[Rfam]
RNA sequence: CGGGUCGGCCGGGCCAUCGCGCCGCCGCAAGGCCCCGACUGCGCCAGGGUGCGCGGUCGGAUAACUGCGGCGUCGAGGAACGUCCGGACUCCACAGGGCAGGAUGGUGGGUAACGCCCACUCGGGGAGACCCGCAGGCCAGUGCCACAGAAAACAGACCGCCCGCUGUGCGCCCUCGGGCGUUCGCAGCGGGUAAGGGUGAAACGGCGGUGUAAGAGACCACCAGCGCGGCAGGUGACUGCUGCGGCUCGGCAAACCCCAUCCGGUGCAAGGUCGAACAGGAUGCGUCCGAGGGCUGCCCGCCUGAGCAUCCGGGUUGACCGCUCGAGGCCCGUGGUGACACGCGGCCCAGAUGGAUGAUGGCCUCCGUACGUCACGUGCGGAACAGAAUCCGGCGUACAGGCCGGCCCGUCCC
Numbered sequence: 001c002g003g004g005u006c007g008g009c010c011g012g013g014c015c016a017u018c019g020c021g022c023c024g025c026c027g028c029a030a031g032g033c034c035c036c037g038a039c040u041g042c043g044c045c046a047g048g049g050u051g052c053g054c055g056g057u058c059g060g061a062u063a064a065c066u067g068c069g070g071c072g073u074c075g076a077g078g079a080a081c082g083u084c085c086g087g088a089c090u091c092c093a094c095a096g097g098g099c100a101g102g103a104u105g106g107u108g109g110g111u112a113a114c115g116c117c118c119a120c121u122c123g124g125g126g127a128g129a130c131c132c133g134c135a136g137g138c139c140a141g142u143g144c145c146a147c148a149g150a151a152a153a154c155a156g157a158c159c160g161c162c163c164g165c166u167g168u169g170c171g172c173c174c175u176c177g178g179g180c181g182u183u184c185g186c187a188g189c190g191g192g193u194a195a196g197g198g199u200g201a202a203a204c205g206g207c208g209g210u211g212u213a214a215g216a217g218a219c220c221a222c223c224a225g226c227g228c229g230g231c232a233g234g235u236g237a238c239u240g241c242u243g244c245g246g247c248u249c250g251g252c253a254a255a256c257c258c259c260a261u262c263c264g265g266u267g268c269a270a271g272g273u274c275g276a277a278c279a280g281g282a283u284g285c286g287u288c289c290g291a292g293g294g295c296u297g298c299c300c301g302c303c304u305g306a307g308c309a310u311c312c313g314g315g316u317u318g319a320c321c322g323c324u325c326g327a328g329g330c331c332c333g334u335g336g337u338g339a340c341a342c343g344c345g346g347c348c349c350a351g352a353u354g355g356a357u358g359a360u361g362g363c364c365u366c367c368g369u370a371c372g373u374c375a376c377g378u379g380c381g382g383a384a385c386a387g388a389a390u391c392c393g394g395c396g397u398a399c400a401g402g403c404c405g406g407c408c409c410g411u412c413c414c
Base pairs, nucleotide, nucleotide: 001410002409003408004407005406006405007404008403009402010401011399012364013363014362015361016360017359018358020075021074023072024071025070026069027068028067080397081396082395084394085393086392087391088390089267091265092264096300097299098298099297101263102262103261104260105259106120107119108118109117110116121135122133123132124131125130136258137257141256142255143252144251145250158197159196160193161192162191163190164189165188166187167186168185205223206222208220209219210218225247226245227244228243229242230241231240232239233238271321272320273319274318280312281311282310283309284308285307292304293303294302295301328347330345332343333342334341335340